A member of the RNA family "RtT RNA" from Pantoea agglomerans, 134 nucleotides long. Rfam classes the family as a cis-regulatory element. The family has 57 seed sequences and 651 matches in Rfam 15.1. From the family's description: This family represents a bacterial cis-regulatory element known as RtT RNA. The exact function of RtT is unknown although it is thought that it may be involved in changing the cellular response in relation to amino acid starvation. For this family Rfam cites "A novel RNA product of the tyrT operon of Escherichia coli" (Bosl and Kersten, Nucleic Acids Res, 1991). Its family is annotated with cellular response to amino acid starvation in the Gene Ontology.
RNA sequence: GCACGGCGUUCCCCGUGCAGGGUGAGAACCUGCAGCAGGUUCGACUGAAUCGCGAGGCGAUUCAGGCUGAUGCGACAGCAUCACCCGAAGGGCGAGGCCCCGGAUGGGCCGAGGCAAUCCUGCACGACCCACCA
Numbered sequence: 001g002c003a004c005g006g007c008g009u010u011c012c013c014c015g016u017g018c019a020g021g022g023u024g025a026g027a028a029c030c031u032g033c034a035g036c037a038g039g040u041u042c043g044a045c046u047g048a049a050u051c052g053c054g055a056g057g058c059g060a061u062u063c064a065g066g067c068u069g070a071u072g073c074g075a076c077a078g079c080a081u082c083a084c085c086c087g088a089a090g091g092g093c094g095a096g097g098c099c100c101c102g103g104a105u106g107g108g109c110c111g112a113g114g115c116a117a118u119c120c121u122g123c124a125c126g127a128c129c130c131a132c133c134a
Stems, first nucleotide, its partner, number of pairs: 015125007023117001033094001036091001040089004047063006069082005